This 152-nucleotide sequence from Vombatus ursinus belongs to the Rfam family "Small nucleolar RNA SNORA43". Lineage of the source: Eukaryota > Bilateria > Gnathostomata > Theria > Vombatus. About the family: ACA43 is a member of the H/ACA class of snoRNA that guide the sites of modification of uridines to pseudouridines. The family's consensus secondary structure was predicted with RNAfold.
[Rfam]
RNA sequence: AAUGCUGCCAUUACCAUUACAGAUACAGCUGCUGCUGCUGCAGCAGUGCUGGGCUGUACCUGUGUCCUUAGGUAGCAAAGAGGAAGUGGCUUUUUCUACGCUCAGUGUUCAGAAAUCUGUGAGCACUAAGAAUGGUUGAUUGCCUGACAUUU
Numbered sequence: 001a002a003u004g005c006u007g008c009c010a011u012u013a014c015c016a017u018u019a020c021a022g023a024u025a026c027a028g029c030u031g032c033u034g035c036u037g038c039u040g041c042a043g044c045a046g047u048g049c050u051g052g053g054c055u056g057u058a059c060c061u062g063u064g065u066c067c068u069u070a071g072g073u074a075g076c077a078a079a080g081a082g083g084a085a086g087u088g089g090c091u092u093u094u095u096c097u098a099c100g101c102u103c104a105g106u107g108u109u110c111a112g113a114a115a116u117c118u119g120u121g122a123g124c125a126c127u128a129a130g131a132a133u134g135g136u137u138g139a140u141u142g143c144c145u146g147a148c149a150u151u152u
Stems, first nucleotide, its partner, number of pairs: 003077007019063004088144003096135003101130002106125006